[Rfam]
RNA sequence: AAUAUUUUUUAAGCGCCAGAACUCAAUGAGUUGACGAGGACCAGAUUUAUCGAAAUAUUCGGCGGAUGAUCUGGAGGCAUAGUACUGUCUAAAAAGAUAGGUAAAAAAGAUAAGUGAUUGUCUAACAGAUUCUAUCAGGUACUCUCU
Numbered sequence: 001a002a003u004a005u006u007u008u009u010u011a012a013g014c015g016c017c018a019g020a021a022c023u024c025a026a027u028g029a030g031u032u033g034a035c036g037a038g039g040a041c042c043a044g045a046u047u048u049a050u051c052g053a054a055a056u057a058u059u060c061g062g063c064g065g066a067u068g069a070u071c072u073g074g075a076g077g078c079a080u081a082g083u084a085c086u087g088u089c090u091a092a093a094a095a096g097a098u099a100g101g102u103a104a105a106a107a108a109g110a111u112a113a114g115u116g117a118u119u120g121u122c123u124a125a126c127a128g129a130u131u132c133u134a135u136c137a138g139g140u141a142c143u144c145u146c147u
Stems, first nucleotide, its partner, number of pairs: 020032005041074005050062004075090005096136005108123006
The record is a 147-nucleotide sequence from Eggerthia catenaformis, which matches "glmS glucosamine-6-phosphate activated ribozyme aptamer" in Rfam. It scores 92 bits against the family's covariance model. The base pairs follow the family's consensus structure, which is taken from published work. The family's RNA type in Rfam is riboswitch.